[Rfam]
RNA sequence: CCCGUCCGCGGCGACUGGCGCCAGACGAGGUGGGGAACACCACCGGGGAGCCGCGAGACCUAUGCACGCCGCGCGCCUGGGCACGAACC
Number, nucleotide and partner (000 for none) at each position: 001c000002c000003c000004g000005u057006c000007c055008g054009c053010g052011g051012c050013g000014a000015c047016u046017g077018g076019c075020g074021c073022c000023a000024g000025a000026c000027g000028a000029g000030g043031u042032g041033g040034g000035g000036a000037a000038c000039a000040c033041c032042a031043c030044c000045g000046g016047g015048g000049a000050g012051c011052c010053g009054c008055g007056a000057g005058a000059c000060c000061u000062a000063u000064g000065c000066a000067c000068g082069c081070c080071g000072c000073g021074c020075g019076c018077c017078u000079g000080g070081g069082c068083a000084c000085g000086a000087a000088c000089c000
Rfam assigns this 89-nucleotide sequence from a Solirubrobacteraceae bacterium to the family "ZMP/ZTP riboswitch aptamer (pfl RNA motif)".
It scores 46 bits against the family's covariance model.
The family's consensus secondary structure is taken from published work.
The organism belongs to Solirubrobacteraceae, within Bacteria.